[Rfam]
RNA sequence: UUCUUAUCCAGAGAGGUGGAGGGACUGGCCCUGUGAAGCCCGGCAACCAGUGUUGAAUCAAAAAACACCCGGUGCCAACUCCUGCAGUUAUUUUUUAGCUGAGAGAUAAGAG
Numbered sequence: 001u002u003c004u005u006a007u008c009c010a011g012a013g014a015g016g017u018g019g020a021g022g023g024a025c026u027g028g029c030c031c032u033g034u035g036a037a038g039c040c041c042g043g044c045a046a047c048c049a050g051u052g053u054u055g056a057a058u059c060a061a062a063a064a065a066c067a068c069c070c071g072g073u074g075c076c077a078a079c080u081c082c083u084g085c086a087g088u089u090a091u092u093u094u095u096u097a098g099c100u101g102a103g104a105g106a107u108a109a110g111a112g
Stems, first nucleotide, its partner, number of pairs: 001112008013041001015040003021031003025084001027082002042076004047072002050068004080104001085101006
Background:
SAM riboswitch aptamer (S box leader): a 112-nucleotide RNA sequence from Halanaerobacter jeridensis. Rfam's curators write: The SAM riboswitch is found upstream of a number of genes which code for proteins involved in methionine or cysteine biosynthesis in Gram-positive bacteria.